[Rfam]
RNA: Small nucleolar RNA SNORA3/SNORA45 family
Organism: Panthera tigris
RNA sequence: CCUAUAUAGAGUCCCAUCCUGACAUAGUUCUUAUCCUGAUGUGCUGGAGUUUUCAGAGAGAGAGAGUCUGCUGGUCUUGAAUCACUGGUGAGGGUAGGCAGCACCCCCAGUGGUGCCCACAUCAGAAACAUGC
Numbered sequence: 001c002c003u004a005u006a007u008a009g010a011g012u013c014c015c016a017u018c019c020u021g022a023c024a025u026a027g028u029u030c031u032u033a034u035c036c037u038g039a040u041g042u043g044c045u046g047g048a049g050u051u052u053u054c055a056g057a058g059a060g061a062g063a064g065a066g067u068c069u070g071c072u073g074g075u076c077u078u079g080a081a082u083c084a085c086u087g088g089u090g091a092g093g094g095u096a097g098g099c100a101g102c103a104c105c106c107c108c109a110g111u112g113g114u115g116c117c118c119a120c121a122u123c124a125g126a127a128a129c130a131u132g133c
Base pairs, nucleotide, nucleotide: 002056003055006052007048010045011044013043015041016040017039018038021035022034024032071125072124073123074122075121077119079117083115084114085113086112087111090108092106093105094104095103